Nucleotides: 075
Base pairs, nucleotide, nucleotide: 001075003072004071011036012035016031017030018029019028020027021026034061040067041066042065044064045063046062047059048058049057
Number, partner (000 for none) and nucleotide at each position: 001075u002000c003072c004071g005000a006000u007000c008000a009000a010000g011036c012035c013000u014000a015000a016031c017030c018029c019028g020027u021026c022000g023000c024000g025000a026021g027020g028019c029018g030017g031016g032000g033000g034061c035012g036011g037000a038000a039000a040067a041066c042065c043000a044064c045063g046062g047059a048058u049057c050000c051000c052000u053000c054000g055000g056000g057049g058048a059047u060000g061034g062046c063045c064044g065042g066041g067040u068000c069000g070000c071004c072003g073000g074000a075001a
The family of this 75-nucleotide RNA sequence from Desulfuromonas thiophila is "c-di-GMP-I-GGC riboswitch aptamer". Pairs were carried over by alignment from the consensus structure, which is taken from published work. On this family, see Weinberg et al., Proc Natl Acad Sci U S A 2017: "Bioinformatic analysis of riboswitch structures uncovers variant classes with altered ligand specificity".